[Rfam]
RNA sequence: GUCGAGGCUCAGAGAGCUCGACGAGGCGCCGGUUGCGCCGGCGUUCGUACCCAUGUUGCUCAAGGAGGAUAUGGAUAUGAGAG
Numbered sequence: 001g002u003c004g005a006g007g008c009u010c011a012g013a014g015a016g017c018u019c020g021a022c023g024a025g026g027c028g029c030c031g032g033u034u035g036c037g038c039c040g041g042c043g044u045u046c047g048u049a050c051c052c053a054u055g056u057u058g059c060u061c062a063a064g065g066a067g068g069a070u071a072u073g074g075a076u077a078u079g080a081g082a083g
Stems, first nucleotide, its partner, number of pairs: 001022006008016002027043006044081006051074007059067003
Shown here is an 83-nucleotide RNA sequence from Roseococcus sp. SYP-B2431, a member of the family "Repression of heat shock gene expression (ROSE) element". Gene Ontology terms of the family: regulation of translation and response to temperature stimulus.